[Rfam]
RNA sequence: UGACUGGACGCGCCGAGUCCCGGACGCCCCCGUCCGGGAGCCGGGGACCCAGCCGCCGGACGCCCCGUCCAGCAGGGGUGAAUUCGCGGGCGCGGCACGCGCGGCGAUAGGGCGGACUCCCGCGCCCGAACCCGACAGCUAACCCGGCAGGCCGACCUGAGGAGAGGA
Numbered sequence: 001u002g003a004c005u006g007g008a009c010g011c012g013c014c015g016a017g018u019c020c021c022g023g024a025c026g027c028c029c030c031c032g033u034c035c036g037g038g039a040g041c042c043g044g045g046g047a048c049c050c051a052g053c054c055g056c057c058g059g060a061c062g063c064c065c066c067g068u069c070c071a072g073c074a075g076g077g078g079u080g081a082a083u084u085c086g087c088g089g090g091c092g093c094g095g096c097a098c099g100c101g102c103g104g105c106g107a108u109a110g111g112g113c114g115g116a117c118u119c120c121c122g123c124g125c126c127c128g129a130a131c132c133c134g135a136c137a138g139c140u141a142a143c144c145c146g147g148c149a150g151g152c153c154g155a156c157c158u159g160a161g162g163a164g165a166g167g168a
Base pairs, nucleotide, nucleotide: 012152013151014150018039019038020037021036022035023034024033025032040148041147042146043145044144045143050075076133077132078131084107085106086105087104110127111126112125113124
Overview:
The record is a 168-nucleotide sequence from Actinomadura logoneensis, which matches "c-di-AMP riboswitch aptamer (ydaO/yuaA leader)" in Rfam. Rfam describes the family as follows. This family represents a conserved RNA structure found upstream of the ydaO and yuaA genes in Bacillus subtilis and related genes in other bacteria.